Source information:
The family of this 82-nucleotide RNA sequence from Methylobacterium sp. Leaf99 is "tRNA". The base pairs follow the family's consensus structure, which is taken from published work.
RNA sequence: GCGGGCGUGGCGGAACUGGUAGACGCGCUGGUUUUAGGUACCAGUGUCGCAAGACGUGGGGGUUCGAGCCCCUCCGCCCGCA
Numbered sequence: 001g002c003g004g005g006c007g008u009g010g011c012g013g014a015a016c017u018g019g020u021a022g023a024c025g026c027g028c029u030g031g032u033u034u035u036a037g038g039u040a041c042c043a044g045u046g047u048c049g050c051a052a053g054a055c056g057u058g059g060g061g062g063u064u065c066g067a068g069c070c071c072c073u074c075c076g077c078c079c080g081c082a
Base pairs, nucleotide, nucleotide: 001081002080003079004078005077006076007075010026011025012024028044029043030042031041032040058074059073060072061071062070